A member of the RNA family "Flavobacterium-1 RNA", 124 nucleotides long. It is one of the family's seed sequences.
RNA sequence: CCGAGAUAGGGGUACAUAUUCUGCCACUGGCGAUUCCCUGGACCUUAGCGAUGAUGGGCAACCUAGCGACGACUCUCGGCGUUCUAAGGGAGAGAGUACCGUUCGCGACGGAGUCUCCCAGGAC
Number, nucleotide and partner (000 for none) at each position: 001c079002c078003g077004a076005g075006a074007u072008a000009g070010g045011g044012g043013u042014a000015c040016a039017u000018a000019u000020u000021c000022u032023g031024c030025c029026a000027c000028u000029g025030g024031c023032g022033a000034u000035u000036c000037c000038c000039u016040g015041g000042a013043c012044c011045u010046u000047a000048g067049c066050g000051a000052u000053g000054a000055u000056g063057g062058g000059c000060a000061a000062c057063c056064u000065a000066g049067c048068g000069a000070c009071g000072a007073c000074u006075c005076u004077c003078g002079g001080c000081g000082u000083u123084c122085u121086a000087a000088g119089g118090g117091a116092g115093a114094g000095a000096g000097u000098a000099c000100c107101g106102u000103u000104c000105g000106c101107g100108a000109c000110g000111g000112a000113g000114u093115c092116u091117c090118c089119c088120a000121g085122g084123a083124c000